Rfam assigns this 62-nucleotide RNA sequence from Poecilia reticulata to the family "mir-728 microRNA precursor family".
The source organism's lineage runs through Eukaryota, Actinopterygii, Neopterygii, Eurypterygia and Poecilia.
Its family is annotated with RISC complex and miRNA-mediated post-transcriptional gene silencing in the Gene Ontology.
The family's consensus secondary structure was predicted with RNAalifold.

[Rfam]
RNA sequence: AAAUGUAGUAGACUAUGAGUAUACGUGAAUCUCUGAAAGUAUACUAAGUAUACUACGUUUAC
Numbered sequence: 001a002a003a004u005g006u007a008g009u010a011g012a013c014u015a016u017g018a019g020u021a022u023a024c025g026u027g028a029a030u031c032u033c034u035g036a037a038a039g040u041a042u043a044c045u046a047a048g049u050a051u052a053c054u055a056c057g058u059u060u061a062c
Stems, first nucleotide, its partner, number of pairs: 001060009012049003018045007